A member of the RNA family "Small nucleolar RNA R64/Z200 family" from Turnera subulata, 92 nucleotides long. For this family Rfam cites "Purified box C/D snoRNPs are able to reproduce site-specific 2'-O-methylation of target RNA in vitro" (Galardi et al., Mol Cell Biol, 2002). A search with the family's covariance model found it, with a score of 98 bits. Rfam classes the family as a C/D-box small nucleolar RNA. Lineage of the source: Eukaryota > Spermatophyta > Mesangiospermae > fabids > Turnera.
RNA sequence: CUUCUGCAGUGAUGAAUCUAUGAAAAAUUUCACAUGUCAGACUUCAGAGAUUUUAAAUCGAUGAGAAGAUAUUCAUAUUUUCUGAGCAGAAG
Numbered sequence: 001c002u003u004c005u006g007c008a009g010u011g012a013u014g015a016a017u018c019u020a021u022g023a024a025a026a027a028u029u030u031c032a033c034a035u036g037u038c039a040g041a042c043u044u045c046a047g048a049g050a051u052u053u054u055a056a057a058u059c060g061a062u063g064a065g066a067a068g069a070u071a072u073u074c075a076u077a078u079u080u081u082c083u084g085a086g087c088a089g090a091a092g
Stems, first nucleotide, its partner, number of pairs: 001092007049059004